A member of the RNA family "Editing element of GABA-3 exon 9" from Geotrypetes seraphini, 54 nucleotides long. It is annotated as a cis-regulatory element. Lineage of the source: Eukaryota > Metazoa > Deuterostomia > Dermophiidae > Geotrypetes. It scores 72 bits against the family's covariance model. The family's consensus secondary structure is taken from published work.
RNA sequence: AAGGUAGCUUAUGCUACUGCCAUGGACUGGUUUAUUGCCGUAUGCUAUGCCUUC
Numbered sequence: 001a002a003g004g005u006a007g008c009u010u011a012u013g014c015u016a017c018u019g020c021c022a023u024g025g026a027c028u029g030g031u032u033u034a035u036u037g038c039c040g041u042a043u044g045c046u047a048u049g050c051c052u053u054c
Stems, first nucleotide, its partner, number of pairs: 002053002007050002010047002013045002015042003019038002022035005